[Rfam]
Annotation:
A member of the RNA family "Purine riboswitch aptamer" from Oceanobacillus bengalensis, 100 nucleotides long. The base pairs follow the family's consensus structure, which is taken from published work. Rfam 15.1 lists 4,097 matches to the family in 1,411 species. For this family Rfam cites "Riboswitches Control Fundamental Biochemical Pathways in Bacillus subtilis and Other Bacteria" (Mandal et al., Cell, 2003).
Nucleotides: 100
Base pairs, nucleotide, nucleotide: 019085020084021083022082023081024080025079030048031047032046033045034044035043058076059075060074061073062072063071
Number, partner (000 for none) and nucleotide at each position: 001000c002000a003000a004000u005000u006000a007000a008000a009000u010000a011000g012000u013000a014000a015000a016000g017000u018000a019085c020084c021083u022082c023081a024080u025079a026000u027000a028000u029000c030048u031047c032046c033045g034044a035043g036000a037000a038000u039000a040000a041000g042000g043035c044034u045033u046032g047031g048030a049000a050000g051000u052000c053000u054000c055000u056000a057000c058076c059075c060074a061073g062072c063071a064000c065000c066000g067000u068000a069000a070000a071063u072062g073061c074060u075059g076058g077000a078000c079025u080024a081023u082022g083021g084020g085019g086000g087000a088000a089000g090000a091000u092000g093000g094000a095000u096000c097000a098000u099000u100000g